A member of the RNA family "THF (Tetrahydrofolate) riboswitch aptamer" from Firmicutes bacterium CAG:176, 98 nucleotides long. For this family Rfam cites "A eubacterial riboswitch class that senses the coenzyme tetrahydrofolate" (Ames et al., Chem Biol, 2010). A search with the family's covariance model found it, with a score of 64 bits. Rfam's curators write: Tetrahydrofolate (THF) riboswitch was first reported for Ames et al. as an RNA motif in 5' untranslated (5'-UTR)regions of folate transport and biosynthesis genes in Firmicutes genomes.
RNA sequence: UUCCGUGUAGGGAUGGUGCGUUAAGUGCCGGACGGAUGGGAGGCUGCCGCCGGACGAAGGUGCAUCUGCGCCGCGAUACCAUUCCAGCUUCCACGGGC
Dot-bracket structure: .((((....((((((((((((...((.((((.(((...[[[[[...)))))))))...((((......))))))).)))))))))..]]]]].)))).